[Rfam]
RNA sequence: CUCUUAUCCAGAGCGCGUGAGGGAUCUGGCCCGAAGACACGCGCAGCAACCGGCCCUCAUCACGGCAACGGUGCUUUCCAGCCUGCUCUCCGCCGACGAUGGCGAAACAGCGGGAACGAUAAGGG
Dot-bracket structure: ((((((((....(((((...(((..[[[[))).......)))))((((.((.(((........)))...))))))..]]]]((((((.....................))))))...))))))))
A member of the RNA family "SAM riboswitch aptamer (S box leader)" from Deinococcus peraridilitoris, 125 nucleotides long. The family's consensus secondary structure is taken from published work. A search with the family's covariance model found it, with a score of 60 bits. The SAM riboswitch is found upstream of a number of genes which code for proteins involved in methionine or cysteine biosynthesis in Gram-positive bacteria.